[Rfam]
RNA sequence: UUGAAAAGAAAACAAAAUGAAAGAAAUUCAUUUUUAAUAAAUGUUUUCGACAAAUGGCUGCCGACCGGAGGGAGGGGCAGUACAUCUU
Numbered sequence: 001u002u003g004a005a006a007a008g009a010a011a012a013c014a015a016a017a018u019g020a021a022a023g024a025a026a027u028u029c030a031u032u033u034u035u036a037a038u039a040a041a042u043g044u045u046u047u048c049g050a051c052a053a054a055u056g057g058c059u060g061c062c063g064a065c066c067g068g069a070g071g072g073a074g075g076g077g078c079a080g081u082a083c084a085u086c087u088u
Base pairs, nucleotide, nucleotide: 008048009047010046011045012044013043016032017031018030019029020028021027057078058077059076061075062074065071066070

A member of the RNA family "GA-cis RNA", 88 nucleotides long. It is annotated as a small RNA.